RNA sequence: UGCUUAUGGAGAAAGACGGAGGGAUUAGACCCUGCGAAGUCUUAGCAACCUGUAACUUUACAAGGUGCUACAUUCUACUUAACAAAGCCGGUGGCAUGUUAGGAAAGAUAAGCG
Numbered sequence: 001u002g003c004u005u006a007u008g009g010a011g012a013a014a015g016a017c018g019g020a021g022g023g024a025u026u027a028g029a030c031c032c033u034g035c036g037a038a039g040u041c042u043u044a045g046c047a048a049c050c051u052g053u054a055a056c057u058u059u060a061c062a063a064g065g066u067g068c069u070a071c072a073u074u075c076u077a078c079u080u081a082a083c084a085a086a087g088c089c090g091g092u093g094g095c096a097u098g099u100u101a102g103g104a105a106a107g108a109u110a111a112g113c114g
Base pairs, nucleotide, nucleotide: 001114002113003112004111005110006109007108013043014042015041016040017039021032022031023030026077027076028075029074044069045068046067047066049065050064051062052061053060054059073106078103079102080101081100082099083098

Notes
Shown here is a 114-nucleotide RNA sequence from Mucilaginibacter hurinus, a member of the family "SAM riboswitch aptamer (S box leader)". The base pairs follow the family's consensus structure, which is taken from published work. The organism belongs to Mucilaginibacter, within Bacteria.